Shown here is a 118-nucleotide sequence from Brachionus plicatilis, a member of the family "RAGATH-11 RNA".
NCBI's taxonomy places the organism under Eukaryota, Gnathifera, Rotifera, Ploima, Brachionus.
A reference for the family is Weinberg et al. (2015), "New classes of self-cleaving ribozymes revealed by comparative genomics analysis", Nat Chem Biol.
It is annotated as a small RNA.
It scores 104 bits against the family's covariance model.
RNA sequence: AUUCUCCUUGGAGAGAAUAAUGCCUGGUUUGUGGUUCCAGGCUAGUCGUGAGCAAGGCCGAGAUCGCAGCUGCGGCUCGGUUGAGUGGCUUUGUUCACUGACGAACGUCCCACAGUUU
Numbered sequence: 001a002u003u004c005u006c007c008u009u010g011g012a013g014a015g016a017a018u019a020a021u022g023c024c025u026g027g028u029u030u031g032u033g034g035u036u037c038c039a040g041g042c043u044a045g046u047c048g049u050g051a052g053c054a055a056g057g058c059c060g061a062g063a064u065c066g067c068a069g070c071u072g073c074g075g076c077u078c079g080g081u082u083g084a085g086u087g088g089c090u091u092u093g094u095u096c097a098c099u100g101a102c103g104a105a106c107g108u109c110c111c112a113c114a115g116u117u118u
Stems, first nucleotide, its partner, number of pairs: 001018006022042006031113004045102003048098003057089004062082002068077003